[Rfam]
RNA sequence: AAUCUAUCCAGAGCGAUUGAGGGACUGGCCCGAUGACAUCCGGCAACCUGCAGGACAUAUGUCCUCCAAGGUGCCAAUUCCAGCAAAAUGGUGUUCCAUUUUGGAAGAUAGGCA
Numbered sequence: 001a002a003u004c005u006a007u008c009c010a011g012a013g014c015g016a017u018u019g020a021g022g023g024a025c026u027g028g029c030c031c032g033a034u035g036a037c038a039u040c041c042g043g044c045a046a047c048c049u050g051c052a053g054g055a056c057a058u059a060u061g062u063c064c065u066c067c068a069a070g071g072u073g074c075c076a077a078u079u080c081c082a083g084c085a086a087a088a089u090g091g092u093g094u095u096c097c098a099u100u101u102u103g104g105a106a107g108a109u110a111g112g113c114a
Base pairs, nucleotide, nucleotide: 003112004111005110006109007108008107013041015040016039017038021031022030023029025083026082027081028080042075043074044073045072047071048070050067052065053064079106084103085102086101087100088099089098
Dot-bracket structure: ..((((((....(.(((...(((.[[[[)))......))))((((.((.(.((..........)).)..))))))...(]]]]((((((........))))))..)))))))..